Rfam assigns this 102-nucleotide RNA from Nyctereutes procyonoides to the family "mir-8834 microRNA precursor family". Pairs were carried over by alignment from the consensus structure, which was predicted with RNAalifold. Its family is annotated with RISC complex and miRNA-mediated post-transcriptional gene silencing in the Gene Ontology. The source organism's lineage runs through Eukaryota, Vertebrata, Gnathostomata, Amniota and Nyctereutes.
RNA sequence: AGGAACUACCGCAGUGGCGGGGCCACCUCUGGAGCUCUGGAUUCAGCUCCUGCAGUAACUACAGAGCUUUCCGUCUGCAGGGCCUGGAGGAUCCCGGGCGGG
Numbered sequence: 001a002g003g004a005a006c007u008a009c010c011g012c013a014g015u016g017g018c019g020g021g022g023c024c025a026c027c028u029c030u031g032g033a034g035c036u037c038u039g040g041a042u043u044c045a046g047c048u049c050c051u052g053c054a055g056u057a058a059c060u061a062c063a064g065a066g067c068u069u070u071c072c073g074u075c076u077g078c079a080g081g082g083c084c085u086g087g088a089g090g091a092u093c094c095c096g097g098g099c100g101g102g
Stems, first nucleotide, its partner, number of pairs: 002094003006090002009086001011084001012082001016075007025068001027066005033060001037055003